[Rfam]
Rfam assigns this 269-nucleotide RNA sequence from Bat alphacoronavirus to the family "Alphacoronavirus 5'UTR".
RNA sequence: AGACUUUUGUCUACUCUUCUCAACUAAACGAAAUUCUAUUGUGGGCCAAUGGCUAUUGGUCCUCAAUAUUUGUGAAAUUUCGUCUAGCCGGUCUGCGUUAGGAAGGCAAGUGUAGUGCUUGCUGUAAGCUCUAGUGCAGUGUUCCGUCACUGUACUAUCUUGCAGUAAGACCCAGCCAGUUCUGUCUGGUUGGUGUGUGAAAGCAACGUUCUGUCGUUGUGGAAACUUACAACUGCUCCUAAUGGCACACGGGCACUACUCGCUUGCUG
Numbered sequence: 001a002g003a004c005u006u007u008u009g010u011c012u013a014c015u016c017u018u019c020u021c022a023a024c025u026a027a028a029c030g031a032a033a034u035u036c037u038a039u040u041g042u043g044g045g046c047c048a049a050u051g052g053c054u055a056u057u058g059g060u061c062c063u064c065a066a067u068a069u070u071u072g073u074g075a076a077a078u079u080u081c082g083u084c085u086a087g088c089c090g091g092u093c094u095g096c097g098u099u100a101g102g103a104a105g106g107c108a109a110g111u112g113u114a115g116u117g118c119u120u121g122c123u124g125u126a127a128g129c130u131c132u133a134g135u136g137c138a139g140u141g142u143u144c145c146g147u148c149a150c151u152g153u154a155c156u157a158u159c160u161u162g163c164a165g166u167a168a169g170a171c172c173c174a175g176c177c178a179g180u181u182c183u184g185u186c187u188g189g190u191u192g193g194u195g196u197g198u199g200a201a202a203g204c205a206a207c208g209u210u211c212u213g214u215c216g217u218u219g220u221g222g223a224a225a226c227u228u229a230c231a232a233c234u235g236c237u238c239c240u241a242a243u244g245g246c247a248c249a250c251g252g253g254c255a256c257u258a259c260u261c262g263c264u265u266g267c268u269g
Base pairs, nucleotide, nucleotide: 001012002011003010004009030081031080032079033078034077035076038067039066040065041064043062044061045060046059047058048057049056050055089252091250096244097243098242099241100240101239102238103237106236107235109234110233111231112230113229114228115227124163125162126161127160134155135154136153137152138151139150140149141148171193173192174191175190176189177188178187179186197226198225203220204219205218206217207216208215

Record summary:
The first 150 to 200 nucleotides within the 5' UTR of alphacoronaviruses are highly structured and shown to be conserved on the structural level among alphacoronaviruses. The 5' UTR has been predicted to contain 3 conserved stem-loops: SL1, SL2 and SL4. SL1 is important for viral replication, most likely playing a role in the template-switch of viral subgenomic RNA transcription. The base pairs follow the family's consensus structure. Rfam links the family to the GO term viral RNA genome replication.